The family of this 114-nucleotide RNA from Branchiostoma floridae is "Potassium channel RNA editing signal". A search with the family's covariance model found it, with a score of 76 bits. Rfam describes the family as follows. This family represents a group of sequences related to the human potassium channel Kv1.1 hairpin element which directs the efficient modification of an adenosine to inosine by an adenosine deaminase acting on RNA (ADAR). Rfam 15.1 lists 14,095 matches to the family in 1,000 species.
RNA sequence: GUUGGGUACGGCGACAUGAUACCAAAGACGCCCGGUGGUAAAGUGAUCGGGACGGUGUGCACCAUAGCUGGCGUUCUUGCGCUAGCACUUCCGGUUCCGGUUAUAGUUGCCAAC
Dot-bracket structure: ((.((..((.(.(((..((.((..............((.(........((...........))..........).))................))))..))).).))..)).))